The record is a 116-nucleotide RNA sequence, which matches "DUF3577 RNA" in Rfam. A search with the family's covariance model found it, with a score of 50 bits. The family's RNA type in Rfam is cis-regulatory element. Pairs were carried over by alignment from the consensus structure, which is taken from published work.
RNA sequence: CGAUCGCACAGCACCCGUACGCGGGUGUCAAACUCGUCUGUAACCCGGCAACGUCAUCCUCGCGAUGGCGUGACGACCCAACUCUACCCGCGCUGCCACCACCCGGCAGCAUCACC
Numbered sequence: 001c002g003a004u005c006g007c008a009c010a011g012c013a014c015c016c017g018u019a020c021g022c023g024g025g026u027g028u029c030a031a032a033c034u035c036g037u038c039u040g041u042a043a044c045c046c047g048g049c050a051a052c053g054u055c056a057u058c059c060u061c062g063c064g065a066u067g068g069c070g071u072g073a074c075g076a077c078c079c080a081a082c083u084c085u086a087c088c089c090g091c092g093c094u095g096c097c098a099c100c101a102c103c104c105g106g107c108a109g110c111a112u113c114a115c116c
Base pairs, nucleotide, nucleotide: 011028012027013026014025015024016023034076035075036074037073038072052070053069054068055067056066057065092110093109094108095107096106